[Rfam]
RNA sequence: UCAUCACCAUCAUCAACCUGAUUAAUCUUUCAGGCGAUGGUGCAUUGGAAGAUUAAGCGAUCUUCCGAGCAUUCGUAAGAAUCACAAUCCUCUCGGAAGAUAAUUUCGAGAGGAUUUUUUU
Numbered sequence: 001u002c003a004u005c006a007c008c009a010u011c012a013u014c015a016a017c018c019u020g021a022u023u024a025a026u027c028u029u030u031c032a033g034g035c036g037a038u039g040g041u042g043c044a045u046u047g048g049a050a051g052a053u054u055a056a057g058c059g060a061u062c063u064u065c066c067g068a069g070c071a072u073u074c075g076u077a078a079g080a081a082u083c084a085c086a087a088u089c090c091u092c093u094c095g096g097a098a099g100a101u102a103a104u105u106u107c108g109a110g111a112g113g114a115u116u117u118u119u120u121u
Stems, first nucleotide, its partner, number of pairs: 010042001011039004017034005045068008084118001086116013